[Rfam]
RNA sequence: AGAUCGGGACGACCCGGUCGCUGUGGAAACUACUCGUCGGGACGACCCGG
Numbered sequence: 001a002g003a004u005c006g007g008g009a010c011g012a013c014c015c016g017g018u019c020g021c022u023g024u025g026g027a028a029a030c031u032a033c034u035c036g037u038c039g040g041g042a043c044g045a046c047c048c049g050g
Stems, first nucleotide, its partner, number of pairs: 002019007037050005
Rfam assigns this 50-nucleotide RNA sequence from Stenotrophobium rhamnosiphilum to the family "Guanidine-II riboswitch aptamer (mini-ykkC)". The family has 72 seed sequences and 1,589 matches in Rfam 15.1. Pairs were carried over by alignment from the consensus structure, which is taken from published work. Simpler in structure and has fewer highly conserved nucleotide positions than the ykkC-yxkD leader. The organism belongs to Stenotrophobium, within Bacteria. A search with the family's covariance model found it, with a score of 43 bits.